Selenocysteine transfer RNA: a 90-nucleotide RNA sequence from Treponema primitia.
Rfam links the family to the GO term triplet codon-amino acid adaptor activity.
RNA sequence: GGAGGUGAAUGUCGCCUGGUGGCGGCUGCGGACUUCAAAUCCGUCAAAGGGUGGAAACGUCCUUGGUGAGUUCGAUUCUCACACGCCUCC
Numbered sequence: 001g002g003a004g005g006u007g008a009a010u011g012u013c014g015c016c017u018g019g020u021g022g023c024g025g026c027u028g029c030g031g032a033c034u035u036c037a038a039a040u041c042c043g044u045c046a047a048a049g050g051g052u053g054g055a056a057a058c059g060u061c062c063u064u065g066g067u068g069a070g071u072u073c074g075a076u077u078c079u080c081a082c083a084c085g086c087c088u089c090c
Stems, first nucleotide, its partner, number of pairs: 001090007011026006028044005047064005067081004